Source information:
Small nucleolar RNA Z103: a 102-nucleotide RNA sequence from Phtheirospermum japonicum. The family's RNA type in Rfam is C/D-box small nucleolar RNA. A reference for the family is Chen et al. (2003), "The high diversity of snoRNAs in plants: identification and comparative study of 120 snoRNA genes from Oryza sativa", Nucleic Acids Res. Gene Ontology terms of the family: RNA processing and nucleolus. Lineage of the source: Eukaryota > Euphyllophyta > Gunneridae > asterids > Phtheirospermum.
[Rfam]
RNA sequence: AUGUAUAUUAUGAUUAUUUCCCAAGAUAACUAAAAUUGAUAAUGUUGUGCUAUUGCAAUUUUUCUUCUUUAUAAAGAAAAUCAAGCAACAAAUCUAAUUCAU
Numbered sequence: 001a002u003g004u005a006u007a008u009u010a011u012g013a014u015u016a017u018u019u020c021c022c023a024a025g026a027u028a029a030c031u032a033a034a035a036u037u038g039a040u041a042a043u044g045u046u047g048u049g050c051u052a053u054u055g056c057a058a059u060u061u062u063u064c065u066u067c068u069u070u071a072u073a074a075a076g077a078a079a080a081u082c083a084a085g086c087a088a089c090a091a092a093u094c095u096a097a098u099u100c101a102u
Stems, first nucleotide, its partner, number of pairs: 001102003005098001